The record is an 83-nucleotide sequence from Hevea brasiliensis, which matches "Small nucleolar RNA R21" in Rfam. The source organism's lineage runs through Eukaryota, Mesangiospermae, fabids, Euphorbiaceae and Hevea.

RNA sequence: CAUCCCUAUGAAGAAUGAUGUUUAUAUGUAAAAGUAGUGGGCUAAUGUCCAUUGAAUUGAUGACAAACAAAUUCUGAGGGGUG
Numbered sequence: 001c002a003u004c005c006c007u008a009u010g011a012a013g014a015a016u017g018a019u020g021u022u023u024a025u026a027u028g029u030a031a032a033a034g035u036a037g038u039g040g041g042c043u044a045a046u047g048u049c050c051a052u053u054g055a056a057u058u059g060a061u062g063a064c065a066a067a068c069a070a071a072u073u074c075u076g077a078g079g080g081g082u083g
Base pairs, nucleotide, nucleotide: 001083002082003081004080005079006078